RNA: glmS glucosamine-6-phosphate activated ribozyme aptamer
RNA sequence: AAAUAAUGUAAAGCGCUGGUACUUGCUAAUUUGAGCAAGUUGACGAGGGAGAGGUUUAUCGAAAUUGUCAGCGGAUGCCUCUCGGCCACUGCGGUCGUUAGAUAGCCGACAAACCCGCAAGGUGACUUGCGGAACAAAACGGCUAAGCAGAAAAAU
Dot-bracket structure: ....................(((((((......))))))).........(((((....(.((.....)).)......)))))(((((.....))))).....((((((......(((((((....))))))).......))))))...........